[Rfam]
Rfam assigns this 64-nucleotide sequence from Microcebus murinus to the family "U7 small nuclear RNA". A search with the family's covariance model found it, with a score of 54 bits. NCBI's taxonomy places the organism under Eukaryota, Chordata, Craniata, Eutheria, Microcebus.
RNA sequence: GAGAAUUACAGCUAUUUUAGAAUUUGUCUAGCAGGUUUUCCGGUCCUCACCGGAAGAUGUCCCC
Numbered sequence: 001g002a003g004a005a006u007u008a009c010a011g012c013u014a015u016u017u018u019a020g021a022a023u024u025u026g027u028c029u030a031g032c033a034g035g036u037u038u039u040c041c042g043g044u045c046c047u048c049a050c051c052g053g054a055a056g057a058u059g060u061c062c063c064c
Stems, first nucleotide, its partner, number of pairs: 034061003037056008